RNA sequence: AGAUGAGGUAGAGGUCGCGAUUUUUAUUAGUAAAAAGAGGGAAAGCCAGAGAGCUUAUUGAUUGCUUUUGAAAGGAAAUAUCGCCGAAGCACUAUUAUUCUCUGAUAAUAGUAGCUGGGUCUGCAUACGAAUAGGUGCAGAACUGUCAUAGGAUCUUACUAUGAUGAACUAUCCUGUUA
Numbered sequence: 001a002g003a004u005g006a007g008g009u010a011g012a013g014g015u016c017g018c019g020a021u022u023u024u025u026a027u028u029a030g031u032a033a034a035a036a037g038a039g040g041g042a043a044a045g046c047c048a049g050a051g052a053g054c055u056u057a058u059u060g061a062u063u064g065c066u067u068u069u070g071a072a073a074g075g076a077a078a079u080a081u082c083g084c085c086g087a088a089g090c091a092c093u094a095u096u097a098u099u100c101u102c103u104g105a106u107a108a109u110a111g112u113a114g115c116u117g118g119g120u121c122u123g124c125a126u127a128c129g130a131a132u133a134g135g136u137g138c139a140g141a142a143c144u145g146u147c148a149u150a151g152g153a154u155c156u157u158a159c160u161a162u163g164a165u166g167a168a169c170u171a172u173c174c175u176g177u178u179a
Stems, first nucleotide, its partner, number of pairs: 007173005017084005023078003033069005039063002088116003091112008117144002120141007146164006
A member of the RNA family "Lysine riboswitch aptamer" from Niallia circulans, 179 nucleotides long. The base pairs follow the family's consensus structure, which is taken from published work.